[Rfam]
RNA: Eukaryotic large subunit ribosomal RNA, nucleotides 2101 to 2615
Organism: Clytia hemisphaerica
RNA sequence: UAGAACAAUGUAGGUAAGGGAAGUCGGCAAAACAGAUCCGUAACUUCGGGAAAAGGAUUGGCUCUAAGGGUCGGGUCUGUCGGGCUGGGAAGCGAAGGAGCGGCUGGACGAGUGCGCUUGGUUUGGUCACCCCUCUCGGGGGGAGAUCGGGCCGAGCGUGCACGGCCGGCUCUCCGGAACGACUCAGCUUUGUCUCGCGAGGGACGCUUCGACAGGCGAUUAACGACCAACUUAGAACUGGUACGGACAAGGGGAAUCCGACUGUUUAAUUAAAACAAAGCAUUGCGAUGGUCGGAAACGAUGUUGACGCAAUGUGAUUUCUGCCCAGUGCUCUGAAUGUCAAAGUGAAGAAAUUCAUCCAAGCGCGGGUAAACGGCGGGAGUAACUAUGACUCUCUUAAGGUAGCCAAAUGCCUCGUCAUCUAAUUAGUGACGCGCAUGAAUGGAUUAACGAGAUUCCCACUGUCCCUAUCUACUAUCUAGCGAAACCACAGCCAAGGGAACGGGCUUGGCAAA
Numbered sequence: 001u002a003g004a005a006c007a008a009u010g011u012a013g014g015u016a017a018g019g020g021a022a023g024u025c026g027g028c029a030a031a032a033c034a035g036a037u038c039c040g041u042a043a044c045u046u047c048g049g050g051a052a053a054a055g056g057a058u059u060g061g062c063u064c065u066a067a068g069g070g071u072c073g074g075g076u077c078u079g080u081c082g083g084g085c086u087g088g089g090a091a092g093c094g095a096a097g098g099a100g101c102g103g104c105u106g107g108a109c110g111a112g113u114g115c116g117c118u119u120g121g122u123u124u125g126g127u128c129a130c131c132c133c134u135c136u137c138g139g140g141g142g143g144a145g146a147u148c149g150g151g152c153c154g155a156g157c158g159u160g161c162a163c164g165g166c167c168g169g170c171u172c173u174c175c176g177g178a179a180c181g182a183c184u185c186a187g188c189u190u191u192g193u194c195u196c197g198c199g200a201g202g203g204a205c206g207c208u209u210c211g212a213c214a215g216g217c218g219a220u221u222a223a224c225g226a227c228c229a230a231c232u233u234a235g236a237a238c239u240g241g242u243a244c245g246g247a248c249a250a251g252g253g254g255a256a257u258c259c260g261a262c263u264g265u266u267u268a269a270u271u272a273a274a275a276c277a278a279a280g281c282a283u284u285g286c287g288a289u290g291g292u293c294g295g296a297a298a299c300g301a302u303g304u305u306g307a308c309g310c311a312a313u314g315u316g317a318u319u320u321c322u323g324c325c326c327a328g329u330g331c332u333c334u335g336a337a338u339g340u341c342a343a344a345g346u347g348a349a350g351a352a353a354u355u356c357a358u359c360c361a362a363g364c365g366c367g368g369g370u371a372a373a374c375g376g377c378g379g380g381a382g383u384a385a386c387u388a389u390g391a392c393u394c395u396c397u398u399a400a401g402g403u404a405g406c407c408a409a410a411u412g413c414c415u416c417g418u419c420a421u422c423u424a425a426u427u428a429g430u431g432a433c434g435c436g437c438a439u440g441a442a443u444g445g446a447u448u449a450a451c452g453a454g455a456u457u458c459c460c461a462c463u464g465u466c467c468c469u470a471u472c473u474a475c476u477a478u479c480u481a482g483c484g485a486a487a488c489c490a491c492a493g494c495c496a497a498g499g500g501a502a503c504g505g506g507c508u509u510g511g512c513a514a515a
Stems, first nucleotide, its partner, number of pairs: 001481004010475007018467003035059005044049001060239002063236006069228005075217009084188003088184002097175004103170005109164002112161017130143005240244001252460007259452002263277003280315008291302004319446003323377003328374002330370004335366001338365003345358005378396006397401001417433005494511005
Dot-bracket structure: ((((.....(((((((.(((..............(((((....(....).....)))))((.(((((((((((.((((((((((((.((.......((((..(((((.((.(((((((((((((((((.(((((....))))).))))))))))))))))).)).))))).)))).......)).)))....................)))))))))......)))))..)))))).))(...).......(((((((((..(((.........)))..((((((((...((((....)))).....))))))))...(((.(((..((((((.(..(((....(((((....)))))....))))))))..)))))((((((.......))))))(...)...............(((((.......)))))..........)))....)).)))))))....))).)))))))..))))............(((((........)))))....